Overview: This 239-nucleotide sequence from Streptomyces sp. Ag109_G2-6 belongs to the Rfam family "Streptomyces sRNA 4677". A search with the family's covariance model found it, with a score of 110 bits. A reference for the family is Hindra et al. (2014), "Complex intra-operonic dynamics mediated by a small RNA in Streptomyces coelicolor", PLoS One. Rfam's curators write: Located in the intergenic region between anti-sigma factor SCO4677 gene and a putative regulatory protein gene SCO4676. scr4677 expression requires the SCO4677 activity and scr4677 sRNA itself seem to affect the levels of the SCO4676-associated transcripts. The base pairs follow the family's consensus structure.
[Rfam]
RNA sequence: CGGACGGUCGCCCCGCACGUCAAAAGACCAAAGAACCGGGGGAAAGAACCAGACCAACCCCACCAGCCUCCCCGCGCGGACCUGGUCGCUCGGACGGGUGAACUAUGCCAACUCGGCUGGAUUUGGAGGUGGUUGCCGGGCAUAUGCUCGCGCCGACAACCCCAGACAUGAGACGGCCCCCGGCGGGACUGCGAAUCCCGGCCGAGGGCCUGAUCCACGAGGAAGUAAGCGCCUUCCCA
Numbered sequence: 001c002g003g004a005c006g007g008u009c010g011c012c013c014c015g016c017a018c019g020u021c022a023a024a025a026g027a028c029c030a031a032a033g034a035a036c037c038g039g040g041g042g043a044a045a046g047a048a049c050c051a052g053a054c055c056a057a058c059c060c061c062a063c064c065a066g067c068c069u070c071c072c073c074g075c076g077c078g079g080a081c082c083u084g085g086u087c088g089c090u091c092g093g094a095c096g097g098g099u100g101a102a103c104u105a106u107g108c109c110a111a112c113u114c115g116g117c118u119g120g121a122u123u124u125g126g127a128g129g130u131g132g133u134u135g136c137c138g139g140g141c142a143u144a145u146g147c148u149c150g151c152g153c154c155g156a157c158a159a160c161c162c163c164a165g166a167c168a169u170g171a172g173a174c175g176g177c178c179c180c181c182g183g184c185g186g187g188a189c190u191g192c193g194a195a196u197c198c199c200g201g202c203c204g205a206g207g208g209c210c211u212g213a214u215c216c217a218c219g220a221g222g223a224a225g226u227a228a229g230c231g232c233c234u235u236c237c238c239a
Stems, first nucleotide, its partner, number of pairs: 007218002010215001016076001018074002086101006116151002119149002175210005181204003185199004221237005